[Rfam]
RNA sequence: UAGAAAUAGGGGUUCCUUGCGGCCCAAAACAGUUGGCUAACUCUGCUCUUCUCUCUAUGUUUUGGACUGAAGGGAGCUCCUAAUUCUU
Numbered sequence: 001u002a003g004a005a006a007u008a009g010g011g012g013u014u015c016c017u018u019g020c021g022g023c024c025c026a027a028a029a030c031a032g033u034u035g036g037c038u039a040a041c042u043c044u045g046c047u048c049u050u051c052u053c054u055c056u057a058u059g060u061u062u063u064g065g066a067c068u069g070a071a072g073g074g075a076g077c078u079c080c081u082a083a084u085u086c087u088u
Stems, first nucleotide, its partner, number of pairs: 007082012021068002024065005
The record is an 88-nucleotide RNA from Citrus sinensis, which matches "MIR319 microRNA precursor family" in Rfam. The base pairs follow the family's consensus structure, which was predicted with RNAalifold.